[Rfam]
RNA: Small nucleolar RNA SNORD16
Nucleotides: 101
Stems, first nucleotide, its partner, number of pairs: 001101003022082003031071004039064002041057005
Number, partner (000 for none) and nucleotide at each position: 001101u002100g003099c004000u005000a006000u007000g008000a009000u010000g011000a012000u013000g014000u015000a016000a017000u018000u019000u020000g021000c022082g023081u024080c025000u026000u027000a028000c029000a030000c031071a032070g033069c034068g035000u036000u037000c038000a039064g040063u041057g042056a043055c044054a045053g046000u047000u048000g049000c050000c051000u052000g053045u054044u055043g056042u057041c058000a059000g060000a061000a062000a063040g064039c065000u066000g067000a068034c069033g070032c071031u072000u073000u074000a075000u076000g077000g078000u079000u080024g081023a082022u083000a084000a085000c086000u087000a088000c089000u090000u091000g092000u093000a094000a095000c096000u097000g098000a099003g100002c101001a